[Rfam]
Nucleotides: 138
Stems, first nucleotide, its partner, number of pairs: 020041005049088005054079006063070002095112006115131003
Number, partner (000 for none) and nucleotide at each position: 001000c002000a003000g004000c005000a006000g007000g008000a009000g010000a011000u012000a013000a014000c015000c016000c017000u018000g019000c020041c021040u022039g023038g024037u025000u026000a027000a028000a029000a030000a031000u032000c033000a034000g035000a036000g037024a038023c039022c040021a041020g042000u043000a044000a045000c046000u047000u048000g049088a050087a051086u052085a053084g054079c055078a056077g057076c058075g059074u060000u061000u062000a063070a064069g065000g066000u067000g068000a069064c070063u071000g072000a073000g074059a075058c076057g077056u078055u079054g080000a081000a082000g083000c084053c085052u086051a087050u088049u089000a090000a091000c092000a093000a094000a095112g096111c097110c098109u099108u100107g101000u102000a103000u104000a105000a106000g107100c108099a109098a110097g111096g112095u113000g114000a115131g116130u117129g118000a119000g120000c121000g122000g123000c124000c125000a126000g127000g128000c129117c130116g131115u132000a133000a134000u135000g136000c137000a138000a
Shown here is a 138-nucleotide sequence from Legionella jordanis, a member of the family "Group II catalytic intron D1-D4-4". The match comes from Rfam's covariance-model search (101 bits). A reference for the family is Bonen and Vogel (2001), "The ins and outs of group II introns", Trends Genet. The family has 90 seed sequences and 840 matches in Rfam 15.1. About the family: Group II introns are found in rRNA, tRNA and mRNA of organelles in fungi, plants and protists, and also in mRNA in bacteria.